[Rfam]
RNA sequence: AGAAAAGAUAGAGGCGCAAAGAAAAAGAGUACGGACUGAGAGGGGACACCCAUUGACCAGUCACGAAAGGGUUCUUUGCCGAAGGGGAUCAGGUGGUUAACCUGUUCUCCUGGGCAUACGUUUAAUAGGCGUAUGACUGUCACGUUUACGUGGAGCACUAUCCUAGUC
Number, nucleotide and partner (000 for none) at each position: 001a000002g000003a000004a000005a000006a000007g162008a161009u160010a159011g158012a000013g000014g000015c000016g079017c078018a077019a076020a075021g074022a073023a072024a000025a000026a000027g000028a000029g000030u000031a000032c000033g000034g062035a061036c060037u059038g058039a000040g000041a000042g000043g000044g000045g000046a000047c000048a000049c000050c000051c000052a000053u000054u000055g000056a000057c000058c038059a037060g036061u035062c034063a000064c000065g000066a000067a000068a000069g000070g000071g000072u023073u022074c021075u020076u019077u018078g017079c016080c000081g000082a000083a111084g110085g109086g108087g107088a106089u000090c104091a103092g102093g101094u100095g000096g000097u000098u000099a000100a094101c093102c092103u091104g090105u000106u088107c087108u086109c085110c084111u083112g138113g137114g000115c135116a134117u133118a132119c131120g130121u129122u128123u000124a000125a000126u000127a000128g122129g121130c120131g119132u118133a117134u116135g115136a000137c113138u112139g000140u153141c152142a151143c150144g149145u000146u000147u000148a000149c144150g143151u142152g141153g140154a000155g000156c000157a000158c011159u010160a009161u008162c007163c000164u000165a000166g000167u000168c000
RNA: Lysine riboswitch aptamer
Organism: Alkalibacterium pelagium